[Rfam]
RNA sequence: UUCCUGCGCUUUUAACGACACACACGUUUCGACACAUGCAGUAGGGUCCUGUUUUGCAAUAGUUAAGCAUGAUGGGUGCUGUAUGGGAAAUGUGGAGGCUUAAC
Numbered sequence: 001u002u003c004c005u006g007c008g009c010u011u012u013u014a015a016c017g018a019c020a021c022a023c024a025c026g027u028u029u030c031g032a033c034a035c036a037u038g039c040a041g042u043a044g045g046g047u048c049c050u051g052u053u054u055u056g057c058a059a060u061a062g063u064u065a066a067g068c069a070u071g072a073u074g075g076g077u078g079c080u081g082u083a084u085g086g087g088a089a090a091u092g093u094g095g096a097g098g099c100u101u102a103a104c
Stems, first nucleotide, its partner, number of pairs: 023094008035085009048076005

Notes
Shown here is a 104-nucleotide RNA sequence from Legionella oakridgensis, a member of the family "t44 RNA". Taxonomically the source falls in Legionella oakridgensis (Bacteria, Pseudomonadota, Legionellales, Legionella). By type it is a small RNA. The base pairs follow the family's consensus structure, which was predicted with LocARNA.